[Rfam]
RNA: SAM/SAH riboswitch aptamer
Organism: Falsiruegeria litorea
RNA sequence: GAAUUGUCACAACGGCUUCCUGGCGUGGCAGUUGUAACCCUAAUGGAGCA
Numbered sequence: 001g002a003a004u005u006g007u008c009a010c011a012a013c014g015g016c017u018u019c020c021u022g023g024c025g026u027g028g029c030a031g032u033u034g035u036a037a038c039c040c041u042a043a044u045g046g047a048g049c050a
Base pairs, nucleotide, nucleotide: 004031005030006029007028008027009026010025013022014021015049016048017047019046020045